[Rfam]
RNA sequence: GCGCUUACCGUCAGGAAACCAUAAAUAGCGAAUUAAGAAAUUUUGCCGGAUAGCACAUACACGCAGCAAUGGCGUAAGACGUAUUGUGAAAUCAGGCAUUUAGCGGGCUGCGGGUUGCAGCCUGGACGAUAAGACGGGAUUGACUCUCUCUGGUAAAUUCAGUGGCGGUUCCCUCAUCCGAGCGCUGUUUUUCCUUAUAAAAACAGGCUGCCGAGAUUUUUGCGCCCCUUGAGCGACCGACAACCGUGAGGUUGACGAUGAAGCGAUAAGACACGGGGCCGUCGGUUAUUCUUCGUCCAGUGUUACUUAGCCCGCAGCUUAGUCACUCA
Numbered sequence: 001g002c003g004c005u006u007a008c009c010g011u012c013a014g015g016a017a018a019c020c021a022u023a024a025a026u027a028g029c030g031a032a033u034u035a036a037g038a039a040a041u042u043u044u045g046c047c048g049g050a051u052a053g054c055a056c057a058u059a060c061a062c063g064c065a066g067c068a069a070u071g072g073c074g075u076a077a078g079a080c081g082u083a084u085u086g087u088g089a090a091a092u093c094a095g096g097c098a099u100u101u102a103g104c105g106g107g108c109u110g111c112g113g114g115u116u117g118c119a120g121c122c123u124g125g126a127c128g129a130u131a132a133g134a135c136g137g138g139a140u141u142g143a144c145u146c147u148c149u150c151u152g153g154u155a156a157a158u159u160c161a162g163u164g165g166c167g168g169u170u171c172c173c174u175c176a177u178c179c180g181a182g183c184g185c186u187g188u189u190u191u192u193c194c195u196u197a198u199a200a201a202a203a204c205a206g207g208c209u210g211c212c213g214a215g216a217u218u219u220u221u222g223c224g225c226c227c228c229u230u231g232a233g234c235g236a237c238c239g240a241c242a243a244c245c246g247u248g249a250g251g252u253u254g255a256c257g258a259u260g261a262a263g264c265g266a267u268a269a270g271a272c273a274c275g276g277g278g279c280c281g282u283c284g285g286u287u288a289u290u291c292u293u294c295g296u297c298c299a300g301u302g303u304u305a306c307u308u309a310g311c312c313c314g315c316a317g318c319u320u321a322g323u324c325a326c327u328c329a
Base pairs, nucleotide, nucleotide: 001029002028044098045097046096047095049093050092054088055087056086057085061082062081063080066073067072105320106319107318108317109316110315111314112313113312114311115310123299124298125297126296127295128294129293136172137171138170139169140168145165146164148162149161181209182208183207185206186205187204188203190202191201192200210286211285212284213283214282224279225278226277227276228275238257239256241254242253243252244251245250
RNase E 5' UTR element: a 329-nucleotide RNA sequence from Pantoea alhagi.
It is annotated as a cis-regulatory element.
For this family Rfam cites "An evolutionarily conserved RNA stem-loop functions as a sensor that directs feedback regulation of RNase E gene expression" (Diwa et al., Genes Dev, 2000).
From the family's description: This family represents a conserved element found in the 5' UTR of RNase E mRNA. RNase E is a key regulatory enzyme in the pathway of mRNA degradation in E. coli that is able to auto-regulate the degradation of its own mRNA in response to changes in RNase E activity. This rne 5' UTR element acts as a sensor of cellular RNase E concentration enabling tight regulation of RNase E concentration and synthesis.